Shown here is a 107-nucleotide RNA from Sporosarcina sp. JAI121, a member of the family "RNA Staph. aureus E (RoxS)". It was shown to be regulated by the presence of nitric oxide (NO). In Bacillus subtilis it controls expression of genes with functions related to oxidative stress and oxidation-reduction reactions and it was renamed RoxS (for related to oxidative stress). By type it is a small RNA. The match comes from Rfam's covariance-model search (81 bits). The family's consensus secondary structure is taken from published work. A reference for the family is Geissmann et al. (2009), "A search for small noncoding RNAs in Staphylococcus aureus reveals a conserved sequence motif for regulation", Nucleic Acids Res.
[Rfam]
RNA sequence: GUGAAAUAAAUCACAUACCAAACAUACACCCCUUUUGUUUGAACGUGAACAUUUCUCCCAUUCCCUUUGAAAUAGAGCAUCCACUUCCCCCCAGAAGUGGAUGCUCU
Dot-bracket structure: ..(((((...((((....((((((...........))))))...))))..))))).....................(((((((((((......)))))))))))...
Numbered sequence: 001g002u003g004a005a006a007u008a009a010a011u012c013a014c015a016u017a018c019c020a021a022a023c024a025u026a027c028a029c030c031c032c033u034u035u036u037g038u039u040u041g042a043a044c045g046u047g048a049a050c051a052u053u054u055c056u057c058c059c060a061u062u063c064c065c066u067u068u069g070a071a072a073u074a075g076a077g078c079a080u081c082c083a084c085u086u087c088c089c090c091c092c093a094g095a096a097g098u099g100g101a102u103g104c105u106c107u
Stems, first nucleotide, its partner, number of pairs: 003055005011048004019041006077104011